A member of the RNA family "Bacterial RNase P class A" from Brevundimonas variabilis, 379 nucleotides long. The base pairs follow the family's consensus structure, which is taken from published work. A search with the family's covariance model found it, with a score of 314 bits.

[Rfam]
RNA sequence: CCAGACGGUCGGACGGUCGCGGCGGGGGUUAUGCUCCUGUCGAGGAAAGUCCGGGCUCCACGGUGAAAAGGCGGCGGGUAACGCCCGCCCGGGGUGACCCGAGGGAUAGCGCCACAGAAAGCAAACCUCCCGCGUCUCGACGCGGGGAAGGGUGAAAGGGUGGGGUAAGAGCCCACCGCGUCUCUGGUAACAGCGACGGCAUGGCAAGCCCCGCCUGGAGCAAGACCGAAUAGGGACGUCGCGCGGGGCUCGCUCCGCAGGGUUCACCGCCCGAGGCGUCCGGGUAGGUCGCGAGAACCGUCCAGCAAUGGGCGGUCCAGAGGAAUGAUCGUCACCGUCUUCGGGCGGACAGAACCCGGCUUACAGACCGUCUGGCAUU
Numbered sequence: 001c002c003a004g005a006c007g008g009u010c011g012g013a014c015g016g017u018c019g020c021g022g023c024g025g026g027g028g029u030u031a032u033g034c035u036c037c038u039g040u041c042g043a044g045g046a047a048a049g050u051c052c053g054g055g056c057u058c059c060a061c062g063g064u065g066a067a068a069a070g071g072c073g074g075c076g077g078g079u080a081a082c083g084c085c086c087g088c089c090c091g092g093g094g095u096g097a098c099c100c101g102a103g104g105g106a107u108a109g110c111g112c113c114a115c116a117g118a119a120a121g122c123a124a125a126c127c128u129c130c131c132g133c134g135u136c137u138c139g140a141c142g143c144g145g146g147g148a149a150g151g152g153u154g155a156a157a158g159g160g161u162g163g164g165g166u167a168a169g170a171g172c173c174c175a176c177c178g179c180g181u182c183u184c185u186g187g188u189a190a191c192a193g194c195g196a197c198g199g200c201a202u203g204g205c206a207a208g209c210c211c212c213g214c215c216u217g218g219a220g221c222a223a224g225a226c227c228g229a230a231u232a233g234g235g236a237c238g239u240c241g242c243g244c245g246g247g248g249c250u251c252g253c254u255c256c257g258c259a260g261g262g263u264u265c266a267c268c269g270c271c272c273g274a275g276g277c278g279u280c281c282g283g284g285u286a287g288g289u290c291g292c293g294a295g296a297a298c299c300g301u302c303c304a305g306c307a308a309u310g311g312g313c314g315g316u317c318c319a320g321a322g323g324a325a326u327g328a329u330c331g332u333c334a335c336c337g338u339c340u341u342c343g344g345g346c347g348g349a350c351a352g353a354a355c356c357c358g359g360c361u362u363a364c365a366g367a368c369c370g371u372c373u374g375g376c377a378u379u
Stems, first nucleotide, its partner, number of pairs: 001375010011364001012333007020042009047362003051359005056220004065267001069216005074088005089103001090101004104211002109209002111205003126151002128147008159177006178200001179198004184193003224290004234281006260272004297316008